[Rfam]
RNA sequence: UGAACCCCAGAGGGGGUCAUUGUAGAAGCGUGCUCGUCGCGACUCCUGCAAGCCCUUUUCAGGGCUGCAAUUCUACA
Numbered sequence: 001u002g003a004a005c006c007c008c009a010g011a012g013g014g015g016g017u018c019a020u021u022g023u024a025g026a027a028g029c030g031u032g033c034u035c036g037u038c039g040c041g042a043c044u045c046c047u048g049c050a051a052g053c054c055c056u057u058u059u060c061a062g063g064g065c066u067g068c069a070a071u072u073c074u075a076c077a
Stems, first nucleotide, its partner, number of pairs: 013046006021077007028040003051066006